[Rfam]
RNA sequence: GUGCUCACGACAACACUUAUCCUGCCGUGUGGCUGCGAUGGGUGCUGGGAUAACGUGAGCUAGAGCACGAGUAUUGCUUUGGGAGUGUCACAUUCCAGACCACAUGAGACACUACAGUUUUCAAUACAACA
Numbered sequence: 001g002u003g004c005u006c007a008c009g010a011c012a013a014c015a016c017u018u019a020u021c022c023u024g025c026c027g028u029g030u031g032g033c034u035g036c037g038a039u040g041g042g043u044g045c046u047g048g049g050a051u052a053a054c055g056u057g058a059g060c061u062a063g064a065g066c067a068c069g070a071g072u073a074u075u076g077c078u079u080u081g082g083g084a085g086u087g088u089c090a091c092a093u094u095c096c097a098g099a100c101c102a103c104a105u106g107a108g109a110c111a112c113u114a115c116a117g118u119u120u121u122c123a124a125u126a127c128a129a130c131a
Base pairs, nucleotide, nucleotide: 003060004059005058006057007056008055014044015043016042018040019039020038021037025032026031071127073125074124075123076122079117080116081115084113085112086111087110088109089108091106093102

The family of this 131-nucleotide RNA sequence from Pitta sordida is "Small Cajal body specific RNA 23".
The family's RNA type in Rfam is small Cajal body RNA.
The organism belongs to Pitta, within Eukaryota.
scaRNAs are a specific class of small nuclear RNAs which localise to the Cajal bodies and guide the modification of RNA polymerase II transcribed spliceosomal RNAs U1, U2, U4, U5 and U12. ACA11 belongs to the H/ACA box class of guide RNAs as it has the predicted hairpin-hinge-hairpin-tail structure,the conserved H/ACA-box motifs and is found associated with GAR1. H/ACA snRNAs are predicted to guide the modification of uridines to pseudouridines in substrate RNAs however, no target RNA has been identified for scaRNA ACA11.